Streptomyces sRNA 4677: a 246-nucleotide sequence from Streptomyces xanthii. The source organism's lineage runs through Bacteria, Bacillati, Actinomycetes, Kitasatosporales and Streptomyces. Rfam 15.1 lists 563 matches to the family in 285 species. Located in the intergenic region between anti-sigma factor SCO4677 gene and a putative regulatory protein gene SCO4676. scr4677 expression requires the SCO4677 activity and scr4677 sRNA itself seem to affect the levels of the SCO4676-associated transcripts. Rfam classes the family as a small RNA.
RNA sequence: GGCGCCGGUGCCGUGGGCGGUCAGUACAAGGAACUCUUGGCCGGGGGAAAGGAACCUUUCCAAGCCCCACCUCUCCCCGCCUGCGAGCCGGUUCACCCGCAGUGGUGAACCUUGCCAAUUCCGCUGGCAAUUGCCCUAGUUGGUUGCUCUACGCUCACCGCAACAACCCCAGACAGACGUCGGCCCCCGACGGGACUAGCGAUCCCGGUCGAGGGCCUGACCAUCAAGGAAGAUCACGACUUCCCC
Numbered sequence: 001g002g003c004g005c006c007g008g009u010g011c012c013g014u015g016g017g018c019g020g021u022c023a024g025u026a027c028a029a030g031g032a033a034c035u036c037u038u039g040g041c042c043g044g045g046g047g048a049a050a051g052g053a054a055c056c057u058u059u060c061c062a063a064g065c066c067c068c069a070c071c072u073c074u075c076c077c078c079g080c081c082u083g084c085g086a087g088c089c090g091g092u093u094c095a096c097c098c099g100c101a102g103u104g105g106u107g108a109a110c111c112u113u114g115c116c117a118a119u120u121c122c123g124c125u126g127g128c129a130a131u132u133g134c135c136c137u138a139g140u141u142g143g144u145u146g147c148u149c150u151a152c153g154c155u156c157a158c159c160g161c162a163a164c165a166a167c168c169c170c171a172g173a174c175a176g177a178c179g180u181c182g183g184c185c186c187c188c189g190a191c192g193g194g195a196c197u198a199g200c201g202a203u204c205c206c207g208g209u210c211g212a213g214g215g216c217c218u219g220a221c222c223a224u225c226a227a228g229g230a231a232g233a234u235c236a237c238g239a240c241u242u243c244c245c246c
Stems, first nucleotide, its partner, number of pairs: 007225004016081004093108005123159001125157003182217005188211002192206004228244005